RNA: Lysine riboswitch aptamer
Organism: Lachnospiraceae bacterium NE2001
RNA sequence: CAAGAAUGUAGAGGACGCGAAGAUUAUCAGUAUCAUAUCGGAUGAGGCUGGCUCAGGUGAAGAUAUGAGAAAGGAUGAUUCGCCGAAGACGCAUAGCUCCAGAGGCUGUGUGAUCUGGGCCUUAGAUUAAAAGUCUAAGGACUGUCAUCUUGUGUGUUGAGCUACAUACAGGAUGGAGUGCUACGGUUAUG
Number, nucleotide and partner (000 for none) at each position: 001c000002a000003a000004g000005a000006a000007u185008g184009u183010a182011g181012a000013g000014g000015a000016c000017g083018c082019g081020a080021a079022g000023a000024u000025u075026a000027u000028c000029a000030g000031u000032a000033u068034c067035a066036u065037a064038u063039c062040g000041g000042a000043u000044g000045a000046g000047g000048c000049u000050g000051g000052c000053u000054c000055a000056g000057g000058u000059g000060a000061a000062g039063a038064u037065a036066u035067g034068a033069g000070a000071a000072a000073g000074g000075a025076u000077g000078a000079u021080u020081c019082g018083c017084c000085g000086a000087a116088g115089a114090c112091g111092c110093a109094u108095a107096g106097c105098u000099c000100c000101a000102g000103a000104g000105g097106c096107u095108g094109u093110g092111u091112g090113a000114u089115c088116u087117g143118g142119g000120c140121c139122u138123u137124a136125g135126a134127u133128u000129a000130a000131a000132a000133g127134u126135c125136u124137a123138a122139g121140g120141a000142c118143u117144g000145u176146c175147a174148u173149c172150u171151u170152g169153u168154g167155u166156g165157u000158u000159g000160a000161g000162c000163u000164a000165c156166a155167u154168a153169c152170a151171g150172g149173a148174u147175g146176g145177a000178g000179u000180g000181c011182u010183a009184c008185g007186g000187u000188u000189a000190u000191g000